[Rfam]
RNA: Lysine riboswitch aptamer
RNA sequence: ACAAAUUGUAGAGGUGCGACUGCAAUAAGUAUUCUUUUGGAGUGGAAAACGAUGAAAAAAGAAGAAAGGGGUAGCCGCCGAAAUCAAUUAAGCGUCAUCUUAGUUGGUUGGUAUCGUUAUCGAAAGGAACGAUACUGUCAUAGCAUAAGCUAUGGAGUGCUACUGUUAGG
Numbered sequence: 001a002c003a004a005a006u007u008g009u010a011g012a013g014g015u016g017c018g019a020c021u022g023c024a025a026u027a028a029g030u031a032u033u034c035u036u037u038u039g040g041a042g043u044g045g046a047a048a049a050c051g052a053u054g055a056a057a058a059a060a061g062a063a064g065a066a067a068g069g070g071g072u073a074g075c076c077g078c079c080g081a082a083a084u085c086a087a088u089u090a091a092g093c094g095u096c097a098u099c100u101u102a103g104u105u106g107g108u109u110g111g112u113a114u115c116g117u118u119a120u121c122g123a124a125a126g127g128a129a130c131g132a133u134a135c136u137g138u139c140a141u142a143g144c145a146u147a148a149g150c151u152a153u154g155g156a157g158u159g160c161u162a163c164u165g166u167u168a169g170g
Base pairs, nucleotide, nucleotide: 006165008163009162010161011160016078017077018076020074021073022072023071032063033062034061035060036059037058038057082109083108084107085106086105087104088103089102090101091100092099110136111135112134113133114132115131116130117129118128120126138155139154140153141152142151143150144149